The record is an 82-nucleotide sequence from Actinoplanes sp. ATCC 53533, which matches "Actinobacteria sRNA Ms_AS-4" in Rfam. A search with the family's covariance model found it, with a score of 73 bits. Pairs were carried over by alignment from the consensus structure. The organism belongs to Actinoplanes, within Bacteria. The family's RNA type in Rfam is small RNA. The family has 9 seed sequences and 207 matches in Rfam 15.1.
[Rfam]
RNA sequence: CUUCGCCGAGGCGUAGCGGUCCUGGUCGUCACCGAACUCGCCGAGCACCCGGGCGCCGAGGAUCACACCGAGUCCGGGCAGG
Numbered sequence: 001c002u003u004c005g006c007c008g009a010g011g012c013g014u015a016g017c018g019g020u021c022c023u024g025g026u027c028g029u030c031a032c033c034g035a036a037c038u039c040g041c042c043g044a045g046c047a048c049c050c051g052g053g054c055g056c057c058g059a060g061g062a063u064c065a066c067a068c069c070g071a072g073u074c075c076g077g078g079c080a081g082g
Base pairs, nucleotide, nucleotide: 010042011041012040013039018038019037020036022034024032055079056078057077060075061074062073063072